[Rfam]
The record is a 76-nucleotide sequence from Alligator sinensis, which matches "Mammalian CPEB3 ribozyme" in Rfam.
RNA sequence: UUUGCAAGGUUGAGGCCACAGCAGAAGCGCUCAUGGUGUGGCCUGUCAGAGUCCAAUGAAAUCUGCUAAUUUGGCU
Number, nucleotide and partner (000 for none) at each position: 001u000002u000003u000004g000005c000006a000007a000008g000009g000010u000011u000012g000013a000014g043015g042016c041017c040018a000019c000020a076021g075022c074023a000024g072025a071026a070027g039028c038029g037030c000031u000032c000033a000034u000035g000036g000037u029038g028039u027040g017041g016042c015043c014044u000045g000046u000047c065048a064049g063050a062051g000052u060053c000054c000055a000056a000057u000058g000059a000060a052061a000062u050063c049064u048065g047066c000067u000068a000069a000070u026071u025072u024073g000074g022075c021076u020
Background:
Lineage of the source: Eukaryota > Bilateria > Dipnotetrapodomorpha > Alligatorinae > Alligator.